Shown here is a 225-nucleotide sequence from Notechis scutatus, a member of the family "Small nucleolar RNA SNORD97". Gene Ontology terms of the family: nucleolus and RNA processing. By type it is a C/D-box small nucleolar RNA. The match comes from Rfam's covariance-model search (81 bits). The base pairs follow the family's consensus structure, which was predicted with WAR.
Nucleotides: 225
Base pairs, nucleotide, nucleotide: 001225002224003223004222005221006220035103036102037101038100
Number, partner (000 for none) and nucleotide at each position: 001225a002224u003223g004222c005221c006220c007000a008000g009000u010000g011000a012000u013000u014000a015000u016000a017000a018000c019000a020000a021000g022000a023000c024000g025000c026000g027000u028000u029000a030000u031000u032000a033000c034000g035103a036102g037101g038100a039000u040000c041000a042000a043000c044000a045000c046000u047000g048000g049000a050000g051000c052000u053000c054000c055000c056000c057000u058000u059000c060000u061000a062000c063000c064000u065000u066000c067000c068000u069000g070000c071000u072000g073000u074000u075000c076000a077000c078000u079000c080000c081000c082000c083000u084000c085000c086000c087000c088000c089000c090000c091000a092000g093000u094000u095000a096000u097000c098000c099000a100038u101037c102036u103035u104000u105000u106000c107000c108000u109000u110000u111000u112000u113000u114000c115000c116000c117000c118000c119000u120000g121000c122000u123000u124000c125000u126000c127000u128000u129000u130000u131000c132000c133000c134000c135000c136000c137000c138000c139000c140000c141000c142000c143000c144000c145000c146000c147000c148000u149000u150000u151000c152000u153000u154000g155000g156000a157000g158000u159000u160000u161000c162000a163000c164000u165000c166000c167000u168000u169000c170000c171000u172000c173000c174000u175000u176000c177000u178000u179000g180000g181000g182000a183000g184000u185000u186000u187000c188000c189000a190000g191000u192000g193000u194000c195000c196000u197000a198000u199000g200000a201000g202000c203000a204000a205000g206000a207000u208000u209000a210000u211000g212000a213000g214000a215000u216000a217000u218000g219000a220006g221005g222004g223003c224002a225001u